[Rfam]
RNA sequence: UAUCGAGGUUUUCCUCGGCAGUUAACUGCAGCCGGAUUUUUUAUUCCUCGGUAGUUAACUACCGAAGGAUCAA
Numbered sequence: 001u002a003u004c005g006a007g008g009u010u011u012u013c014c015u016c017g018g019c020a021g022u023u024a025a026c027u028g029c030a031g032c033c034g035g036a037u038u039u040u041u042u043a044u045u046c047c048u049c050g051g052u053a054g055u056u057a058a059c060u061a062c063c064g065a066a067g068g069a070u071c072a073a
Base pairs, nucleotide, nucleotide: 012069013068015066016064017063018062020060021059022058023057024056025055026054027053028052029051
RNA: MIR2629 microRNA precursor family
Organism: Medicago truncatula